[Rfam]
RNA sequence: UCUAGCUCUGAUUGUCCAAACGCAAUUCUUGUCCUGUGCUGGUUUAGCUACUCAAGAGUUGUGACUGGACAUCCGUGGCUCGG
Number, nucleotide and partner (000 for none) at each position: 001u000002c082003u000004a080005g079006c078007u077008c000009u000010g073011a072012u071013u000014g070015u069016c068017c067018a066019a000020a000021c063022g062023c061024a060025a059026u058027u057028c056029u055030u054031g053032u000033c000034c000035u000036g000037u000038g000039c000040u000041g000042g000043u000044u000045u000046a000047g000048c000049u000050a000051c000052u000053c031054a030055a029056g028057a027058g026059u025060u024061g023062u022063g021064a000065c000066u018067g017068g016069a015070c014071a012072u011073c010074c000075g000076u000077g007078g006079c005080u004081c000082g002083g000
RNA: mir-219 microRNA precursor family